[Rfam]
RNA sequence: GCAACCUCAAGCUCGCGCACGAGCAGAUCGCGGUGUUCCGCUCACUGCUGGGCAUCAGCUGGAUGUGGUUUUUCGGCGCGGUGUUCCUGGGCAAUUUUCCGGCCUUCGCCAAGGAGGUUCUG
Numbered sequence: 001g002c003a004a005c006c007u008c009a010a011g012c013u014c015g016c017g018c019a020c021g022a023g024c025a026g027a028u029c030g031c032g033g034u035g036u037u038c039c040g041c042u043c044a045c046u047g048c049u050g051g052g053c054a055u056c057a058g059c060u061g062g063a064u065g066u067g068g069u070u071u072u073u074c075g076g077c078g079c080g081g082u083g084u085u086c087c088u089g090g091g092c093a094a095u096u097u098u099c100c101g102g103c104c105u106u107c108g109c110c111a112a113g114g115a116g117g118u119u120c121u122g
Stems, first nucleotide, its partner, number of pairs: 010049003015043001017041002021038005051121002054118002059113002062110001063105001065103001067099002071094002074091001077089002080087002
RNA: Burkholderia RNA 11
Organism: Ottowia testudinis